[Rfam]
c-di-AMP riboswitch aptamer (ydaO/yuaA leader): a 169-nucleotide RNA from Crystallibacter crystallopoietes. The match comes from Rfam's covariance-model search (56 bits). The pairing is the family consensus, mapped onto this sequence. Gene Ontology terms of the family: regulation of gene expression and cyclic-di-AMP binding. The organism belongs to Crystallibacter, within Bacteria.
RNA sequence: CCGUUCGAAAUACCAGACAGGGGCGGAGGAACCACAUCCGGUGCCUUGGGCACCUUGGGGUGAAGUCCGGUCAACUGCUUCCUUUUAACAAGGGGUGCUUACUGCCCGGGCCGAGUUGAACUCUCACUCGAAUCCGACAGCUAACUUCGCAGGCGUACGGAGAGGACCC
Numbered sequence: 001c002c003g004u005u006c007g008a009a010a011u012a013c014c015a016g017a018c019a020g021g022g023g024c025g026g027a028g029g030a031a032c033c034a035c036a037u038c039c040g041g042u043g044c045c046u047u048g049g050g051c052a053c054c055u056u057g058g059g060g061u062g063a064a065g066u067c068c069g070g071u072c073a074a075c076u077g078c079u080u081c082c083u084u085u086u087a088a089c090a091a092g093g094g095g096u097g098c099u100u101a102c103u104g105c106c107c108g109g110g111c112c113g114a115g116u117u118g119a120a121c122u123c124u125c126a127c128u129c130g131a132a133u134c135c136g137a138c139a140g141c142u143a144a145c146u147u148c149g150c151a152g153g154c155g156u157a158c159g160g161a162g163a164g165g166a167c168c169c
Base pairs, nucleotide, nucleotide: 001021002020023150024149025148026147027146028145033057034056058135059134060133066110067109068108069107113129114128115127116126